[Rfam]
About this RNA
This 114-nucleotide sequence from Musa troglodytarum belongs to the Rfam family "Plastid-psbA-1 3UTR RNA". It is annotated as a cis-regulatory element. A search with the family's covariance model found it, with a score of 56 bits. The family is grouped with related families in Rfam's "Plastid-psbA 3UTR RNA clan". The literature on the family includes a 2023 paper in Plant Commun by Richter et al., "Retrograde signaling in plants: A critical review focusing on the GUN pathway and beyond". The family's consensus secondary structure was predicted with LocARNA.

RNA sequence: UUUAUGUUAUCUGUUUAGUUUAUAUGUAUGCUAUGCGCAAAAAACAAUAUUGUAUCAAACAAAGUAGCAAUACCCCGUAUCUUGUUUUAGCAAGAUAUGGGGUAUUGCUACUUU
Number, nucleotide and partner (000 for none) at each position: 001u000002u000003u000004a000005u000006g000007u000008u000009a000010u000011c000012u000013g000014u000015u000016u000017a000018g000019u000020u000021u000022a000023u000024a000025u000026g000027u000028a000029u000030g000031c000032u000033a000034u000035g000036c000037g000038c000039a000040a000041a000042a000043a000044a000045c000046a000047a000048u000049a000050u000051u000052g000053u000054a000055u000056c000057a000058a000059a000060c000061a114062a113063a112064g111065u110066a109067g108068c107069a106070a105071u104072a103073c102074c000075c100076c099077g098078u000079a096080u095081c094082u093083u092084g000085u000086u000087u000088u000089a000090g000091c000092a083093a082094g081095a080096u079097a000098u077099g076100g075101g000102g073103u072104a071105u070106u069107g068108c067109u066110a065111c064112u063113u062114u061